RNA sequence: GACCCAGCGACCGAACUGUCACCGUAUGGUGGCGUGCCCGAGACACCUCGGGAUAGGUCCUGGGUCGCUC
Numbered sequence: 001g002a003c004c005c006a007g008c009g010a011c012c013g014a015a016c017u018g019u020c021a022c023c024g025u026a027u028g029g030u031g032g033c034g035u036g037c038c039c040g041a042g043a044c045a046c047c048u049c050g051g052g053a054u055a056g057g058u059c060c061u062g063g064g065u066c067g068c069u070c
Stems, first nucleotide, its partner, number of pairs: 001066007009059004017034007037052004
RNA: DUF3800-IX RNA